This 189-nucleotide RNA sequence from Lachancea kluyveri belongs to the Rfam family "U2 spliceosomal RNA". By type it is a spliceosomal small nuclear RNA. Rfam links the family to the GO terms U2 snRNP, mRNA branch site recognition and pre-mRNA branch point binding. About the family: U2 is a small nuclear RNA (snRNA) component of the spliceosome (involved in pre-mRNA splicing). Rfam's curators put it in the seed alignment. Pairs were carried over by alignment from the consensus structure, which is taken from published work.
[Rfam]
RNA sequence: AUAAAUCUCUUUGCCUUUUGGCUUAGAUCAAGUGUAGUAUCUGUUCUUUUCAGUGUAACAACUGGAAUGUCCUCAACGAGGGCGUUACGCUAAGUUACAGCCCACUUUUUGGAACCUUAGGGAGAAGAAGGCUCGGAAUCGUCGCUGGGUGGCGCAUCGGCAAUACGGAGCUACCUGGAUGCAGGCCUG
Numbered sequence: 001a002u003a004a005a006u007c008u009c010u011u012u013g014c015c016u017u018u019u020g021g022c023u024u025a026g027a028u029c030a031a032g033u034g035u036a037g038u039a040u041c042u043g044u045u046c047u048u049u050u051c052a053g054u055g056u057a058a059c060a061a062c063u064g065g066a067a068u069g070u071c072c073u074c075a076a077c078g079a080g081g082g083c084g085u086u087a088c089g090c091u092a093a094g095u096u097a098c099a100g101c102c103c104a105c106u107u108u109u110u111g112g113a114a115c116c117u118u119a120g121g122g123a124g125a126a127g128a129a130g131g132c133u134c135g136g137a138a139u140c141g142u143c144g145c146u147g148g149g150u151g152g153c154g155c156a157u158c159g160g161c162a163a164u165a166c167g168g169a170g171c172u173a174c175c176u177g178g179a180u181g182c183a184g185g186c187c188u189g
Base pairs, nucleotide, nucleotide: 008027009026010025013022014021015020048067049066050065051064052063053062068084069083070082071081072080073079074078116149117148118147119146120145122143123142128139152182153181154180157177159175160174
Dot-bracket structure: .......(((..(((....)))..)))....................((((((........))))))(((((((...)))))))...............................(((((.((....(..........)..)).)))))..(((..(.((.............)).)..))).......